RNA sequence: UUGAUUAAUUAAUCGUGCGGAUUAAUAAUCCAGGACUCUAAAACCGUGUUGCUUGAAUUAAUUUACAAUUUAGUUCCCAAGCGUCAAGUCCAUCGGAGAGAAAAAAUUAGACAUAGUUCAUCUUAGUGCCCUUUUGUGUAUUUUGCUUUUAAUUAUAACAAGUUAUGCAAGGGCUGGUAGGACUAAUAUAU
Numbered sequence: 001u002u003g004a005u006u007a008a009u010u011a012a013u014c015g016u017g018c019g020g021a022u023u024a025a026u027a028a029u030c031c032a033g034g035a036c037u038c039u040a041a042a043a044c045c046g047u048g049u050u051g052c053u054u055g056a057a058u059u060a061a062u063u064u065a066c067a068a069u070u071u072a073g074u075u076c077c078c079a080a081g082c083g084u085c086a087a088g089u090c091c092a093u094c095g096g097a098g099a100g101a102a103a104a105a106a107u108u109a110g111a112c113a114u115a116g117u118u119c120a121u122c123u124u125a126g127u128g129c130c131c132u133u134u135u136g137u138g139u140a141u142u143u144u145g146c147u148u149u150u151a152a153u154u155a156u157a158a159c160a161a162g163u164u165a166u167g168c169a170a171g172g173g174c175u176g177g178u179a180g181g182a183c184u185a186a187u188a189u190a191u
Base pairs, nucleotide, nucleotide: 008026009025010024011023012022013021014020029097030096031095033091034090035089036088051082052081053080054079055076056075057074058073059072060071061070062068121182122181123180124179125178128174129173130172131171132170135169136168137167138166139165140164142162143161144160145159

Shown here is a 191-nucleotide RNA from Naumovozyma dairenensis, a member of the family "Small nucleolar RNA snR35". NCBI's taxonomy places the organism under Eukaryota, Dikarya, Saccharomycetes, Naumovozyma, Naumovozyma dairenensis.